Shown here is a 138-nucleotide RNA sequence from Populus trichocarpa, a member of the family "MIR480 microRNA precursor family". Taxonomically the source falls in Populus (Eukaryota, Streptophytina, Pentapetalae, Malpighiales). It is one of the family's seed sequences. On this family, see Lu et al., Plant Cell 2005: "Novel and mechanical stress-responsive MicroRNAs in Populus trichocarpa that are absent from Arabidopsis".
RNA sequence: GAUCUCUUUGGGGGCAAAUCCUUAUUUGCUAUGACAUAACUACAUUUGACUACUCAAAAUCAUUUGUUAUCACAAGCCCGACUACAUCAGUGACAUUAAGAAAUAGAGGACAACUAUUUUUCAGUAUAUAAGUUGGAA
Numbered sequence: 001g002a003u004c005u006c007u008u009u010g011g012g013g014g015c016a017a018a019u020c021c022u023u024a025u026u027u028g029c030u031a032u033g034a035c036a037u038a039a040c041u042a043c044a045u046u047u048g049a050c051u052a053c054u055c056a057a058a059a060u061c062a063u064u065u066g067u068u069a070u071c072a073c074a075a076g077c078c079c080g081a082c083u084a085c086a087u088c089a090g091u092g093a094c095a096u097u098a099a100g101a102a103a104u105a106g107a108g109g110a111c112a113a114c115u116a117u118u119u120u121u122c123a124g125u126a127u128a129u130a131a132g133u134u135g136g137a138a
Stems, first nucleotide, its partner, number of pairs: 004136002008131002012127001014125002018121001024117002026113003030109001

Gene Ontology terms of the family: miRNA-mediated post-transcriptional gene silencing and RISC complex.